[Rfam]
RNA sequence: UAGUAAGAGCUAUUGGCGGAUGCCUUGGCAUUGACAGGCGAUGAAGGAUGCGUUUACCUGCAGUAAUCUUCGGCGAGCUGGUAUAAAGCUAUGACCCGGAGGUCUCCGAAUGGGGCAACCCGGUAGAUUAAUCAUCUACCAUUAUAUGCUGAAUACAUAGGCAUAUAAAGCGACACCUGCUGAACUGAAACAUCUUAGUAAGCAGAGGAAAAGAAAUCAAAGAGAUUCCCUGAGUAGCGGCGAGCGAAAGGGGAUUAGACCAAACCACGUUUUUAAUGUGGGGUUGUAGGGUCGAUAACAUGGGAUCUUAAGUUUUAGUUGAAUACUUCUGGAAAGUAGAACGACACAGGGUGAUAGUCCCGUAAACGAAAAAACAAGAGACUCUAUUCGAUACCUGAGUAGGGCUAGACACGUGAAACCUAGUCUGAAUCUGGGGAGACCACUCUCCAAGUCUAAAUACUAGUCAAUGACCUAUAGUGAACCAGUACUGUGAAGGAAAGGUGAAAAGAACCCUUGUUAAGGGAGUGAAAUAGAACCUGAAACCAAUAGCUUAUAAG
Numbered sequence: 001u002a003g004u005a006a007g008a009g010c011u012a013u014u015g016g017c018g019g020a021u022g023c024c025u026u027g028g029c030a031u032u033g034a035c036a037g038g039c040g041a042u043g044a045a046g047g048a049u050g051c052g053u054u055u056a057c058c059u060g061c062a063g064u065a066a067u068c069u070u071c072g073g074c075g076a077g078c079u080g081g082u083a084u085a086a087a088g089c090u091a092u093g094a095c096c097c098g099g100a101g102g103u104c105u106c107c108g109a110a111u112g113g114g115g116c117a118a119c120c121c122g123g124u125a126g127a128u129u130a131a132u133c134a135u136c137u138a139c140c141a142u143u144a145u146a147u148g149c150u151g152a153a154u155a156c157a158u159a160g161g162c163a164u165a166u167a168a169a170g171c172g173a174c175a176c177c178u179g180c181u182g183a184a185c186u187g188a189a190a191c192a193u194c195u196u197a198g199u200a201a202g203c204a205g206a207g208g209a210a211a212a213g214a215a216a217u218c219a220a221a222g223a224g225a226u227u228c229c230c231u232g233a234g235u236a237g238c239g240g241c242g243a244g245c246g247a248a249a250g251g252g253g254a255u256u257a258g259a260c261c262a263a264a265c266c267a268c269g270u271u272u273u274u275a276a277u278g279u280g281g282g283g284u285u286g287u288a289g290g291g292u293c294g295a296u297a298a299c300a301u302g303g304g305a306u307c308u309u310a311a312g313u314u315u316u317a318g319u320u321g322a323a324u325a326c327u328u329c330u331g332g333a334a335a336g337u338a339g340a341a342c343g344a345c346a347c348a349g350g351g352u353g354a355u356a357g358u359c360c361c362g363u364a365a366a367c368g369a370a371a372a373a374a375c376a377a378g379a380g381a382c383u384c385u386a387u388u389c390g391a392u393a394c395c396u397g398a399g400u401a402g403g404g405c406u407a408g409a410c411a412c413g414u415g416a417a418a419c420c421u422a423g424u425c426u427g428a429a430u431c432u433g434g435g436g437a438g439a440c441c442a443c444u445c446u447c448c449a450a451g452u453c454u455a456a457a458u459a460c461u462a463g464u465c466a467a468u469g470a471c472c473u474a475u476a477g478u479g480a481a482c483c484a485g486u487a488c489u490g491u492g493a494a495g496g497a498a499a500g501g502u503g504a505a506a507a508g509a510a511c512c513c514u515u516g517u518u519a520a521g522g523g524a525g526u527g528a529a530a531u532a533g534a535a536c537c538u539g540a541a542a543c544c545a546a547u548a549g550c551u552u553a554u555a556a557g
Base pairs, nucleotide, nucleotide: 007552008551009550010549011548012547013546014545015544016543022537023501024500027472028471029469030468031467032466033465034464035463036461037460038171039170046107047106048105049062050061051060068101069100070099071098072097073096077089078088079087112121113120114119122140123139124138125137126136127135128134142168143167144166145165146164147163148162149161150160176207177205178204179203180202181201187194188193217223218222226457227254228253229252230251231250237245238244257454258453259452260451265281266280267279268278269277270276271275288396289395290394292390294388295387296386304383306381307380308379309378312375313374314373315372316371318367319366320365324340326339327338329336343347349361350360351359402426403425404424405423406422407421408420433448434447435446436445437444488495489494511523512522513521514520
Notes
Shown here is a 557-nucleotide part of an RNA from Chlamydia felis, a member of the family "Bacterial large subunit ribosomal RNA". The source organism's lineage runs through Bacteria, Pseudomonadati, Chlamydiia, Chlamydiaceae and Chlamydia.